This 514-nucleotide sequence from Saitozyma sp. JCM 24511 belongs to the Rfam family "Nuclear RNase P". Taxonomically the source falls in Saitozyma (Eukaryota, Fungi, Basidiomycota, Agaricomycotina).
RNA sequence: GCAGCUCCAAGGUCACAAUGCUCGCUACACACAGAGGAGCGCCCUAGGUAUGUCCCAUGCCCUCGGCAUCCAUGUCACGCCGCCAUCGCUGACUCUUGUUGAAGCGCGCCCCCUCCCAUUUGCGAGCGGGCUAAGGUCCUGGAAUUCCAACCCCCACAAAGACUGGUCCUUACCGGAUCCUCGGCCAAUCGUCGAGUAGUGCCCGACCAGAAAUGCGUCCUCGUCCUGUCCCAACCUCCUCGAGGUGACCCAGAGAUGCGCAGAGCGCGGAGGGUAUGGUGGGCGGCGGACUUGGUAUGGGUGCGGGGGGUCGCCUUGUGUCCGUGUUCUUCCCUCGUCGUGGUCUCACGCAGGGAGAGUCCCCGCUUCGGCGGGGAAGUGUCGUGGAGAAGCCAUGACCCGGAUACCAAAAGGCUUUAGUGCAAUUUGGUGACGUCCUCGGCCGGCUCUCGCUGUGCAACCCGCCCUUGAUGCGGCGGGGAGGAUAACUCGAUCAGGACUACUCUGGGACUGC
Numbered sequence: 001g002c003a004g005c006u007c008c009a010a011g012g013u014c015a016c017a018a019u020g021c022u023c024g025c026u027a028c029a030c031a032c033a034g035a036g037g038a039g040c041g042c043c044c045u046a047g048g049u050a051u052g053u054c055c056c057a058u059g060c061c062c063u064c065g066g067c068a069u070c071c072a073u074g075u076c077a078c079g080c081c082g083c084c085a086u087c088g089c090u091g092a093c094u095c096u097u098g099u100u101g102a103a104g105c106g107c108g109c110c111c112c113c114u115c116c117c118a119u120u121u122g123c124g125a126g127c128g129g130g131c132u133a134a135g136g137u138c139c140u141g142g143a144a145u146u147c148c149a150a151c152c153c154c155c156a157c158a159a160a161g162a163c164u165g166g167u168c169c170u171u172a173c174c175g176g177a178u179c180c181u182c183g184g185c186c187a188a189u190c191g192u193c194g195a196g197u198a199g200u201g202c203c204c205g206a207c208c209a210g211a212a213a214u215g216c217g218u219c220c221u222c223g224u225c226c227u228g229u230c231c232c233a234a235c236c237u238c239c240u241c242g243a244g245g246u247g248a249c250c251c252a253g254a255g256a257u258g259c260g261c262a263g264a265g266c267g268c269g270g271a272g273g274g275u276a277u278g279g280u281g282g283g284c285g286g287c288g289g290a291c292u293u294g295g296u297a298u299g300g301g302u303g304c305g306g307g308g309g310g311u312c313g314c315c316u317u318g319u320g321u322c323c324g325u326g327u328u329c330u331u332c333c334c335u336c337g338u339c340g341u342g343g344u345c346u347c348a349c350g351c352a353g354g355g356a357g358a359g360u361c362c363c364c365g366c367u368u369c370g371g372c373g374g375g376g377a378a379g380u381g382u383c384g385u386g387g388a389g390a391a392g393c394c395a396u397g398a399c400c401c402g403g404a405u406a407c408c409a410a411a412a413g414g415c416u417u418u419a420g421u422g423c424a425a426u427u428u429g430g431u432g433a434c435g436u437c438c439u440c441g442g443c444c445g446g447c448u449c450u451c452g453c454u455g456u457g458c459a460a461c462c463c464g465c466c467c468u469u470g471a472u473g474c475g476g477c478g479g480g481g482a483g484g485a486u487a488a489c490u491c492g493a494u495c496a497g498g499a500c501u502a503c504u505c506u507g508g509g510a511c512u513g514c
Stems, first nucleotide, its partner, number of pairs: 001514004007508003012434004016429003020127005034115004138498005152309004165179005180196006199304007217291003435486006
It is annotated as a ribozyme. Rfam's curators write: Ribonuclease P (RNase P) is a ubiquitous endoribonuclease, found in archaea, bacteria and eukarya as well as chloroplasts and mitochondria. It scores 69 bits against the family's covariance model.